Rfam assigns this 133-nucleotide RNA from Kluyvera cryocrescens to the family "RtT RNA". Rfam classes the family as a cis-regulatory element. The organism belongs to Kluyvera, within Bacteria. This family represents a bacterial cis-regulatory element known as RtT RNA. The exact function of RtT is unknown although it is thought that it may be involved in changing the cellular response in relation to amino acid starvation. Rfam links the family to the GO term cellular response to amino acid starvation. A search with the family's covariance model found it, with a score of 98 bits. Pairs were carried over by alignment from the consensus structure, which is taken from published work.

RNA sequence: UUGCGUUUAAGGCACAGGAGGAUGAGAACCUCCGGGGGUAGAGGUUCGACUCGAGCGAAGCGAGAGAACGUUGCGUGAGCAACGGCCCGUAGGGCGAGCCACGCAGUGGUGAGUCAUCCUCUAUCACCGACCA
Numbered sequence: 001u002u003g004c005g006u007u008u009a010a011g012g013c014a015c016a017g018g019a020g021g022a023u024g025a026g027a028a029c030c031u032c033c034g035g036g037g038g039u040a041g042a043g044g045u046u047c048g049a050c051u052c053g054a055g056c057g058a059a060g061c062g063a064g065a066g067a068a069c070g071u072u073g074c075g076u077g078a079g080c081a082a083c084g085g086c087c088c089g090u091a092g093g094g095c096g097a098g099c100c101a102c103g104c105a106g107u108g109g110u111g112a113g114u115c116a117u118c119c120u121c122u123a124u125c126a127c128c129g130a131c132c133a
Stems, first nucleotide, its partner, number of pairs: 017122005023116001033096002045091001047089002052062002069084006